RNA sequence: GCAAUAACUAACUGUAUGUUGCUCUGGAUAAGAGCGUCUGCUAAAUGACUAAAA
Numbered sequence: 001g002c003a004a005u006a007a008c009u010a011a012c013u014g015u016a017u018g019u020u021g022c023u024c025u026g027g028a029u030a031a032g033a034g035c036g037u038c039u040g041c042u043a044a045a046u047g048a049c050u051a052a053a054a
Stems, first nucleotide, its partner, number of pairs: 013043001014041003020036006